[Rfam]
RNA sequence: CUUGACCGAGCCCAGCCACAACGGUUGGUCCUCGGGCCUGUCCUGUCCGUAGGUCGCCAGCAGCGCCUGGGCUUC
Numbered sequence: 001c002u003u004g005a006c007c008g009a010g011c012c013c014a015g016c017c018a019c020a021a022c023g024g025u026u027g028g029u030c031c032u033c034g035g036g037c038c039u040g041u042c043c044u045g046u047c048c049g050u051a052g053g054u055c056g057c058c059a060g061c062a063g064c065g066c067c068u069g070g071g072c073u074u075c
Base pairs, nucleotide, nucleotide: 014026015025016024017023031071032070033069038065043060044059045058047056049054